[Rfam]
RNA sequence: GGGGCAGGCUGGGCAAUCGCGGUAUCGUGUAUAUCGAGGAAGGUCCGGACUCCACAGGGCAGGGUAGCGGCUAACAGCCGUCCGGCAAGCGGGCGUGAACAUGCCCUCAAGCCGAGGAACAGGGCCACAGAGACGAGUCUGUUGCAUGGGCGUGCAUUGCACGCACCGAUACGGCAACUUCCGUAUGGCGCGGUCGGGUAACCGUUCGCAAUGCAGCAGGGUGAAACGCGGUAACCUCUAUCCGGAGCAACACCAAAUAGGCAUACGACGAGCUUUCGGGCUCACAGGGCGGCCCGCCCGAGUAUGCGGGUAGGUGGCCAGAGCGCGUCAGCAAUGGCGCGCCCAGAUGAAUGAUUGCCCGCCGGGUUUCCCGGCGUACAGAAUCCGGCCUACAGGCCUGUCCCGUCU
Numbered sequence: 001g002g003g004g005c006a007g008g009c010u011g012g013g014c015a016a017u018c019g020c021g022g023u024a025u026c027g028u029g030u031a032u033a034u035c036g037a038g039g040a041a042g043g044u045c046c047g048g049a050c051u052c053c054a055c056a057g058g059g060c061a062g063g064g065u066a067g068c069g070g071c072u073a074a075c076a077g078c079c080g081u082c083c084g085g086c087a088a089g090c091g092g093g094c095g096u097g098a099a100c101a102u103g104c105c106c107u108c109a110a111g112c113c114g115a116g117g118a119a120c121a122g123g124g125c126c127a128c129a130g131a132g133a134c135g136a137g138u139c140u141g142u143u144g145c146a147u148g149g150g151c152g153u154g155c156a157u158u159g160c161a162c163g164c165a166c167c168g169a170u171a172c173g174g175c176a177a178c179u180u181c182c183g184u185a186u187g188g189c190g191c192g193g194u195c196g197g198g199u200a201a202c203c204g205u206u207c208g209c210a211a212u213g214c215a216g217c218a219g220g221g222u223g224a225a226a227c228g229c230g231g232u233a234a235c236c237u238c239u240a241u242c243c244g245g246a247g248c249a250a251c252a253c254c255a256a257a258u259a260g261g262c263a264u265a266c267g268a269c270g271a272g273c274u275u276u277c278g279g280g281c282u283c284a285c286a287g288g289g290c291g292g293c294c295c296g297c298c299c300g301a302g303u304a305u306g307c308g309g310g311u312a313g314g315u316g317g318c319c320a321g322a323g324c325g326c327g328u329c330a331g332c333a334a335u336g337g338c339g340c341g342c343c344c345a346g347a348u349g350a351a352u353g354a355u356u357g358c359c360c361g362c363c364g365g366g367u368u369u370c371c372c373g374g375c376g377u378a379c380a381g382a383a384u385c386c387g388g389c390c391u392a393c394a395g396g397c398c399u400g401u402c403c404c405g406u407c408u
Stems, first nucleotide, its partner, number of pairs: 001404010011393001012359007020036006041391003045388005050247004057295004062243005067081005082116001083114004117238002122236002124232003139220002141217007149209001251316004261307006287299004323342008
Record summary: Shown here is a 408-nucleotide sequence from Pusillimonas sp. T2, a member of the family "Bacterial RNase P class A". Ribonuclease P (RNase P) is a ubiquitous endoribonuclease, found in archaea, bacteria and eukarya as well as chloroplasts and mitochondria. The match comes from Rfam's covariance-model search (216 bits).